[Rfam]
This 351-nucleotide RNA from Brevibacterium mcbrellneri belongs to the Rfam family "Bacterial RNase P class A". The match comes from Rfam's covariance-model search (293 bits).

Nucleotides: 351
Base pairs, nucleotide, nucleotide: 001347002346003345004344005343006342007341008340009339010338011336012293013292014291015290016289017288020029021028022027034334035333036332038331039330040329041328042327043201044200045199046198050230051229052228053227055197056196057195058194059193060074061073062072063071064070075089076087077086078085079084090192091191095190096189097186098185099184112131113130114127115126116125117124118123139157140156141155142154143153144152159181160179161178162177163176164175165174166173167172205250206249207248208247214241215240216239217238218237219236222234223233224232225231257276258275259274261272262271263270264269
Number, partner (000 for none) and nucleotide at each position: 001347a002346c003345a004344g005343g006342u007341c008340g009339c010338g011336g012293g013292a014291c015290g016289a017288c018000u019000a020029c021028g022027u023000g024000a025000a026000a027022a028021c029020g030000a031000g032000g033000a034334a035333c036332g037000u038331c039330c040329g041328g042327g043201c044200u045199c046198c047000a048000c049000a050230g051229a052228g053227c054000a055197c056196g057195g058194u059193g060074g061073u062072g063071g064070g065000u066000a067000a068000c069000g070064c071063c072062c073061a074060c075089c076087c077086g078085g079084g080000g081000u082000a083000a084079c085078u086077c087076g088000c089075g090192g091191g092000a093000a094000a095190g096189u097186g098185c099184c100000a101000c102000a103000g104000a105000a106000a107000a108000c109000a110000g111000a112131c113130c114127g115126c116125c117124a118123c119000g120000u121000a122000a123118g124117u125116g126115g127114u128000a129000a130113g131112g132000g133000u134000g135000a136000a137000a138000a139157g140156g141155u142154g143153g144152u145000g146000u147000a148000a149000g150000a151000g152144a153143c154142c155141a156140c157139c158000a159181g160179u161178g162177u163176u164175c165174c166173a167172g168000g169000u170000g171000a172167c173166u174165g175164g176163a177162a178161u179160a180000g181159c182000u183000u184099g185098g186097u187000a188000a189096a190095c191091c192090c193059c194058a195057c196056c197055g198046g199045g200044a201043g202000c203000a204000a205250g206249a207248u208247c209000a210000g211000a212000c213000a214241g215240a216239c217238a218237g219236c220000g221000c222234a223233g224232g225231c226000u227053g228052c229051u230050c231225g232224c233223u234222u235000a236219g237218c238217u239216g240215u241214c242000g243000g244000g245000u246000g247208g248207a249206u250205c251000g252000c253000u254000u255000g256000a257276g258275c259274g260000c261272c262271g263270u264269g265000g266000c267000a268000a269264c270263a271262c272261g273000u274259c275258g276257c277000c278000u279000a280000g281000a282000u283000a284000g285000a286000u287000u288017g289016u290015c291014g292013u293012c294000g295000c296000g297000u298000g299000g300000a301000c302000g303000c304000g305000g306000g307000u308000a309000a310000c311000u312000g313000c314000c315000c316000c317000a318000c319000g320000u321000a322000c323000a324000a325000a326000a327042c328041c329040c330039g331038g332036c333035g334034u335000a336011u337000a338010c339009g340008c341007g342006g343005c344004c345003u346002g347001u348000c349000c350000c351000u